This 66-nucleotide sequence from Nibricoccus aquaticus belongs to the Rfam family "DUF3800-VIII RNA". The source organism's lineage runs through Bacteria, Pseudomonadati, Verrucomicrobiota, Opitutales and Nibricoccus. It is annotated as a small RNA. A search with the family's covariance model found it, with a score of 50 bits.
RNA sequence: AACGCCCUGUUUGACCGAAUGCUGACGCUUGUCGUCAGAGUUUUAUGUAGGUCCAAACGGGGCGUU
Numbered sequence: 001a002a003c004g005c006c007c008u009g010u011u012u013g014a015c016c017g018a019a020u021g022c023u024g025a026c027g028c029u030u031g032u033c034g035u036c037a038g039a040g041u042u043u044u045a046u047g048u049a050g051g052u053c054c055a056a057a058c059g060g061g062g063c064g065u066u
Stems, first nucleotide, its partner, number of pairs: 001066012013053004020040001022038006